[Rfam]
RNA sequence: UGGAAGUGAUGAAACAGAGAUAAUUGGAUGUCUGUUUGAAUGGAGUGUGUGUGAUAAGUGGAAUUUAAACCAAGUCAGACUGGGGCUGGGGUGUGGGGAAUGGGUGUGCGUGUACAGAAGAGGCUUUAAGCGGGGGCACUGAUAACGCAGUGCUGAUUCCGGAGUGCAUCUGAGGCAUGUUGUUAAGUUCUGGGGUGCCACUUUACAACAUUGCCAAUGAUUAAAGCCCAAAACAAGCCCACCAAGACAAGCCUAGGCAUCUUAAAUCUCUAACAGGUUCAUUAAUGAGAGUGAUCCUGUGAUCUGAUCCAA
Numbered sequence: 001u002g003g004a005a006g007u008g009a010u011g012a013a014a015c016a017g018a019g020a021u022a023a024u025u026g027g028a029u030g031u032c033u034g035u036u037u038g039a040a041u042g043g044a045g046u047g048u049g050u051g052u053g054a055u056a057a058g059u060g061g062a063a064u065u066u067a068a069a070c071c072a073a074g075u076c077a078g079a080c081u082g083g084g085g086c087u088g089g090g091g092u093g094u095g096g097g098g099a100a101u102g103g104g105u106g107u108g109c110g111u112g113u114a115c116a117g118a119a120g121a122g123g124c125u126u127u128a129a130g131c132g133g134g135g136g137c138a139c140u141g142a143u144a145a146c147g148c149a150g151u152g153c154u155g156a157u158u159c160c161g162g163a164g165u166g167c168a169u170c171u172g173a174g175g176c177a178u179g180u181u182g183u184u185a186a187g188u189u190c191u192g193g194g195g196u197g198c199c200a201c202u203u204u205a206c207a208a209c210a211u212u213g214c215c216a217a218u219g220a221u222u223a224a225a226g227c228c229c230a231a232a233a234c235a236a237g238c239c240c241a242c243c244a245a246g247a248c249a250a251g252c253c254u255a256g257g258c259a260u261c262u263u264a265a266a267u268c269u270c271u272a273a274c275a276g277g278u279u280c281a282u283u284a285a286u287g288a289g290a291g292u293g294a295u296c297c298u299g300u301g302a303u304c305u306g307a308u309c310c311a312a
Stems, first nucleotide, its partner, number of pairs: 001311004178210006185203001187198002190195001

The family of this 312-nucleotide RNA sequence from Sagittarius serpentarius is "Small Cajal body-specific RNA 7". Its family is annotated with nucleolus and RNA processing in the Gene Ontology. The literature on the family includes a 2002 paper in EMBO J by Darzacq et al., "Cajal body-specific small nuclear RNAs: a novel class of 2'-O-methylation and pseudouridylation guide RNAs". It scores 177 bits against the family's covariance model.